[Rfam]
RNA sequence: UUAUCAGAUGUUUUUAUCAGGUUCUGCUUGUUAAAAACGGGUGAUAAUAAUCGUACUAACGUAACGCUUUGCCGUGUAAAUCACCGAAGCGCUGCGUUUUUUU
Numbered sequence: 001u002u003a004u005c006a007g008a009u010g011u012u013u014u015u016a017u018c019a020g021g022u023u024c025u026g027c028u029u030g031u032u033a034a035a036a037a038c039g040g041g042u043g044a045u046a047a048u049a050a051u052c053g054u055a056c057u058a059a060c061g062u063a064a065c066g067c068u069u070u071g072c073c074g075u076g077u078a079a080a081u082c083a084c085c086g087a088a089g090c091g092c093u094g095c096g097u098u099u100u101u102u103u
Stems, first nucleotide, its partner, number of pairs: 002046005009039008018030002058098006065091007074084003

Record summary: The record is a 103-nucleotide RNA sequence from Amylolactobacillus amylophilus, which matches "23S methyl RNA motif" in Rfam. NCBI's taxonomy places the organism under Bacteria, Bacillota, Lactobacillales, Amylolactobacillus, Amylolactobacillus amylophilus. The family's consensus secondary structure is taken from published work. A reference for the family is Weinberg et al. (2007), "Identification of 22 candidate structured RNAs in bacteria using the CMfinder comparative genomics pipeline", Nucleic Acids Res.